RNA sequence: GCCGAGACUAGAGUCACGUCUGGACAGUGCCUGUUGUCCCGAUGUGCUAGAGUACUCGAAUAGUAACCACUAAUCUAUAUUCACUGGCUGUGACCACUCCUGUCUCGGUCAGUCACCAGAUUAGUGACAGGA
Numbered sequence: 001g002c003c004g005a006g007a008c009u010a011g012a013g014u015c016a017c018g019u020c021u022g023g024a025c026a027g028u029g030c031c032u033g034u035u036g037u038c039c040c041g042a043u044g045u046g047c048u049a050g051a052g053u054a055c056u057c058g059a060a061u062a063g064u065a066a067c068c069a070c071u072a073a074u075c076u077a078u079a080u081u082c083a084c085u086g087g088c089u090g091u092g093a094c095c096a097c098u099c100c101u102g103u104c105u106c107g108g109u110c111a112g113u114c115a116c117c118a119g120a121u122u123a124g125u126g127a128c129a130g131g132a
Base pairs, nucleotide, nucleotide: 003058004057005056006055007053008052009051012048013047015046016045017044018043019042020041023038024037025036026035070124071123072122073121074120075119076118083113084112085111086110087109089107090106092104093103094102
Small nucleolar RNA SNORA3/SNORA45 family: a 132-nucleotide RNA sequence from Gallus gallus. It scores 108 bits against the family's covariance model. The literature on the family includes a 2005 paper in Nucleic Acids Res by Gu et al., "A novel experimental approach for systematic identification of box H/ACA snoRNAs from eukaryotes". The family's consensus secondary structure was predicted with RNAalifold. About the family: The members of this family belong to the H/ACA class of snoRNAs which are thought to guide the sites of modification of uridines to pseudouridines. This family includes mouse snoMBI-28 and human homologues ACA3 (SNORA3) and ACA3-2 (SNORA45). Both ACA3 and ACA3-2 share the same host gene. MBI-28, ACA3 and ACA3-2 are all predicted to guide the pseudouridylation of residues in 28S rRNA. Taxonomically the source falls in Gallus (Eukaryota, Opisthokonta, Vertebrata, Gnathostomata).